Shown here is a 78-nucleotide sequence from Schistosoma haematobium, a member of the family "mir-3492 microRNA precursor family". The base pairs follow the family's consensus structure, which was predicted with RNAalifold.

RNA sequence: GGCUUUUUGAGUCCGUGCCGAGAUUUCGUUAGACAUCAAACCAUUAUAGCGGAUCAGACUUCCAAGAUAAGUGAAGUU
Numbered sequence: 001g002g003c004u005u006u007u008u009g010a011g012u013c014c015g016u017g018c019c020g021a022g023a024u025u026u027c028g029u030u031a032g033a034c035a036u037c038a039a040a041c042c043a044u045u046a047u048a049g050c051g052g053a054u055c056a057g058a059c060u061u062c063c064a065a066g067a068u069a070a071g072u073g074a075a076g077u078u
Base pairs, nucleotide, nucleotide: 002077003076004075005074006073008071011068012067013066016064017063020061021060022059024058025057026056028054029053030052

About this RNA:
NCBI's taxonomy places the organism under Eukaryota, Protostomia, Spiralia, Lophotrochozoa, Schistosoma. The family has 2 seed sequences and 21,496 matches in Rfam 15.1. It scores 45 bits against the family's covariance model.